Rfam assigns this 47-nucleotide RNA sequence from Nicotiana tabacum to the family "Plastid-ycf3 group II-D1 intron".
Plastid rpl16 is a non-coding RNA (ncRNA) recognised in plastids.
Gene Ontology term of the family: Group II intron splicing.
A reference for the family is Richter et al. (2023), "Retrograde signaling in plants: A critical review focusing on the GUN pathway and beyond", Plant Commun.
It scores 60 bits against the family's covariance model.
Rfam 15.1 lists 1,488 matches to the family in 559 species.
Nucleotides: 047
Base pairs, nucleotide, nucleotide: 010025011024012023013022032044
Number, partner (000 for none) and nucleotide at each position: 001000a002000u003000u004000c005000c006000u007000u008000c009000u010025g011024u012023c013022g014000u015000g016000u017000a018000u019000c020000c021000u022013c023012g024011a025010u026000u027000a028000a029000u030000g031000c032044a033000a034000a035000c036000u037000u038000a039000g040000a041000u042000g043000c044032u045000u046000u047000g